Rfam assigns this 115-nucleotide RNA sequence from Pseudomonas putida to the family "TPP riboswitch aptamer (THI element)". The organism belongs to Pseudomonas putida, within Bacteria. A search with the family's covariance model found it, with a score of 74 bits. A reference for the family is Rodionov et al. (2002), "Comparative genomics of thiamin biosynthesis in procaryotes. New genes and regulatory mechanisms", J Biol Chem.
RNA sequence: AGCGCCACCAAGGGGAGCCCGGCAAUGGGCUGAGAAACCGCUGAACGCUACAGCGCGGUGACCCUUCGAACCUGAUCCGGAUCAUGCCGGCGAAGGGAUGGGGCUUGUAACCUGC
Numbered sequence: 001a002g003c004g005c006c007a008c009c010a011a012g013g014g015g016a017g018c019c020c021g022g023c024a025a026u027g028g029g030c031u032g033a034g035a036a037a038c039c040g041c042u043g044a045a046c047g048c049u050a051c052a053g054c055g056c057g058g059u060g061a062c063c064c065u066u067c068g069a070a071c072c073u074g075a076u077c078c079g080g081a082u083c084a085u086g087c088c089g090g091c092g093a094a095g096g097g098a099u100g101g102g103g104c105u106u107g108u109a110a111c112c113u114g115c
Base pairs, nucleotide, nucleotide: 006103008101009100010099011065012064013063014062017030018029019028020027021026037059038058039057040056041055071096072095073094077090078089079088080087